[Rfam]
Shown here is an 86-nucleotide sequence from Vicugna pacos, a member of the family "Small nucleolar RNA SNORD70". It is annotated as a C/D-box small nucleolar RNA. Taxonomically the source falls in Vicugna (Eukaryota, Opisthokonta, Chordata, Tetrapoda). It scores 96 bits against the family's covariance model. The family has 21 seed sequences and 1,085 matches in Rfam 15.1. snoRNA HBII-234 belongs to the C/D family of snoRNAs. It is the human orthologue of the mouse MBII-234 and is predicted to guide 2'O-ribose methylation of the small 18S rRNA on position A512. It is hosted, together with HBII-95, by the core C/D box snoRNA protein encoding gene NOP5/NOP58.
RNA sequence: UUCAUUGUUGUCGAUGAUGUAUUGUUGGAACUGAAUCUACGUGAUCUAACUCAGAUAUUCGUCACUACCACUGAGACAACAAUGAG
Numbered sequence: 001u002u003c004a005u006u007g008u009u010g011u012c013g014a015u016g017a018u019g020u021a022u023u024g025u026u027g028g029a030a031c032u033g034a035a036u037c038u039a040c041g042u043g044a045u046c047u048a049a050c051u052c053a054g055a056u057a058u059u060c061g062u063c064a065c066u067a068c069c070a071c072u073g074a075g076a077c078a079a080c081a082a083u084g085a086g
Stems, first nucleotide, its partner, number of pairs: 001086012